[Rfam]
RNA: Vault RNA
RNA sequence: GCAUCGGUUUAGCUCAGUGGUUACUUCUCUGCCUCAAACGCAGCUCUCUCUGCGCUCUCCGAGUGCAGGGUUCAACUACGGGCGCUGUCCGGUGUUUUA
Numbered sequence: 001g002c003a004u005c006g007g008u009u010u011a012g013c014u015c016a017g018u019g020g021u022u023a024c025u026u027c028u029c030u031g032c033c034u035c036a037a038a039c040g041c042a043g044c045u046c047u048c049u050c051u052g053c054g055c056u057c058u059c060c061g062a063g064u065g066c067a068g069g070g071u072u073c074a075a076c077u078a079c080g081g082g083c084g085c086u087g088u089c090c091g092g093u094g095u096u097u098u099a
Stems, first nucleotide, its partner, number of pairs: 002094006012083004017079004026075001